[Rfam]
RNA sequence: AUAUCCCCCAAUCUGGGAGGGGUGAGAAUCCUCGACAGGGUUCGACAAAAUGGCUCGCAGCGCAGAGACAUUUUGGACGGCCGACCGGCCGCCCGCAGGGUGAGCUUGCGAAUCAAGCCCUCCCUCACCGCCA
Numbered sequence: 001a002u003a004u005c006c007c008c009c010a011a012u013c014u015g016g017g018a019g020g021g022g023u024g025a026g027a028a029u030c031c032u033c034g035a036c037a038g039g040g041u042u043c044g045a046c047a048a049a050a051u052g053g054c055u056c057g058c059a060g061c062g063c064a065g066a067g068a069c070a071u072u073u074u075g076g077a078c079g080g081c082c083g084a085c086c087g088g089c090c091g092c093c094c095g096c097a098g099g100g101u102g103a104g105c106u107u108g109c110g111a112a113u114c115a116a117g118c119c120c121u122c123c124c125u126c127a128c129c130g131c132c133a
Base pairs, nucleotide, nucleotide: 015124016123017122018121019120020119021118023116033102034101036099041097043095044094048072075090076089078087079086080085
Rfam assigns this 133-nucleotide sequence from Serratia fonticola to the family "RtT RNA". It is annotated as a cis-regulatory element. A search with the family's covariance model found it, with a score of 48 bits. Gene Ontology term of the family: cellular response to amino acid starvation. Lineage of the source: Bacteria > Pseudomonadati > Enterobacterales > Yersiniaceae > Serratia. Rfam describes the family as follows. This family represents a bacterial cis-regulatory element known as RtT RNA. The exact function of RtT is unknown although it is thought that it may be involved in changing the cellular response in relation to amino acid starvation. The base pairs follow the family's consensus structure, which is taken from published work. A reference for the family is Bosl and Kersten (1991), "A novel RNA product of the tyrT operon of Escherichia coli", Nucleic Acids Res.